[Rfam]
RNA sequence: ACAGCAUCAAUGAUGGACAAAAACCUUGUAAUCAUCCUUGCACUUGAAUUUUUAUAGUGAAGAGAACUAAUGGGGAAAUAUGAGUCUGAGAUGCUU
Numbered sequence: 001a002c003a004g005c006a007u008c009a010a011u012g013a014u015g016g017a018c019a020a021a022a023a024c025c026u027u028g029u030a031a032u033c034a035u036c037c038u039u040g041c042a043c044u045u046g047a048a049u050u051u052u053u054a055u056a057g058u059g060a061a062g063a064g065a066a067c068u069a070a071u072g073g074g075g076a077a078a079u080a081u082g083a084g085u086c087u088g089a090g091a092u093g094c095u096u
Base pairs, nucleotide, nucleotide: 003095004094005093006092007091008090
The family of this 96-nucleotide sequence from Papaver somniferum is "Small nucleolar RNA snoR26". It is annotated as a C/D-box small nucleolar RNA. Rfam 15.1 lists 611 matches to the family in 220 species. The organism belongs to Papaver, within Eukaryota. It scores 61 bits against the family's covariance model.